[Rfam]
RNA sequence: GAAUCUUAGGAUGAAAAAUUUCGGAUGUAAAUCACAGACCUGUUCUGAAAGCGCAAAGCCGUGUGGAUAUUUUCCGUUGCCUUCCUUCUGAUCUUGAUU
Numbered sequence: 001g002a003a004u005c006u007u008a009g010g011a012u013g014a015a016a017a018a019u020u021u022c023g024g025a026u027g028u029a030a031a032u033c034a035c036a037g038a039c040c041u042g043u044u045c046u047g048a049a050a051g052c053g054c055a056a057a058g059c060c061g062u063g064u065g066g067a068u069a070u071u072u073u074c075c076g077u078u079g080c081c082u083u084c085c086u087u088c089u090g091a092u093c094u095u096g097a098u099u
Stems, first nucleotide, its partner, number of pairs: 003098003022076004
The record is a 99-nucleotide sequence from Talaromyces amestolkiae, which matches "Small nucleolar RNA Z13/snr52" in Rfam. It is annotated as a C/D-box small nucleolar RNA. Taxonomically the source falls in Talaromyces sect. Talaromyces (Eukaryota, Pezizomycotina, leotiomyceta, Talaromyces). Rfam links the family to the GO terms nucleolus and RNA processing.